RNA sequence: ACUCCCUUAGUAUAAACAAUACAACUGACUUCCAAUCAGUUAAUUCUGAAAAAACUCAGAAGAGAGUA
Numbered sequence: 001a002c003u004c005c006c007u008u009a010g011u012a013u014a015a016a017c018a019a020u021a022c023a024a025c026u027g028a029c030u031u032c033c034a035a036u037c038a039g040u041u042a043a044u045u046c047u048g049a050a051a052a053a054a055c056u057c058a059g060a061a062g063a064g065a066g067u068a
Stems, first nucleotide, its partner, number of pairs: 001067004006062002010022004024040005045060005